[Rfam]
RNA sequence: CGAGGAUAAGCCAAAUCUGCCGAAAGACAUGGACGGGGAAUUACGGGUCUUAUCGGAGAUAACUGGAUUGCCUUAA
Numbered sequence: 001c002g003a004g005g006a007u008a009a010g011c012c013a014a015a016u017c018u019g020c021c022g023a024a025a026g027a028c029a030u031g032g033a034c035g036g037g038g039a040a041u042u043a044c045g046g047g048u049c050u051u052a053u054c055g056g057a058g059a060u061a062a063c064u065g066g067a068u069u070g071c072c073u074u075a076a
Base pairs, nucleotide, nucleotide: 003073004072011036012035016031018029019028021026039069040068041067042066044065045064046063047060048059049058

The record is a 76-nucleotide RNA, which matches "c-di-GMP-I-GGC riboswitch aptamer" in Rfam. The family's consensus secondary structure is taken from published work. The literature on the family includes a 2017 paper in Proc Natl Acad Sci U S A by Weinberg et al., "Bioinformatic analysis of riboswitch structures uncovers variant classes with altered ligand specificity".